[Rfam]
Rfam assigns this 84-nucleotide sequence from Takifugu rubripes to the family "mir-218 microRNA precursor family".
Taxonomically the source falls in Takifugu (Eukaryota, Eumetazoa, Gnathostomata, Eurypterygia).
The family's consensus secondary structure was predicted with RNAalifold.
The literature on the family includes a 2005 paper in Genes Dev by Chen et al., "The developmental miRNA profiles of zebrafish as determined by small RNA cloning".
RNA sequence: GGUUGUUCCUUUGUGCUUGAUCUAACCAUGUGGCUGCCGGGUUCUUAUAGUGGAACAUGGUUCUGUCAAGCACCAUGGAACGGC
Numbered sequence: 001g002g003u004u005g006u007u008c009c010u011u012u013g014u015g016c017u018u019g020a021u022c023u024a025a026c027c028a029u030g031u032g033g034c035u036g037c038c039g040g041g042u043u044c045u046u047a048u049a050g051u052g053g054a055a056c057a058u059g060g061u062u063c064u065g066u067c068a069a070g071c072a073c074c075a076u077g078g079a080a081c082g083g084c
Base pairs, nucleotide, nucleotide: 002084003083004082005081006080007079008078009077013073014072015071016070017069018068019067024062025061026060027059028058029057030056031055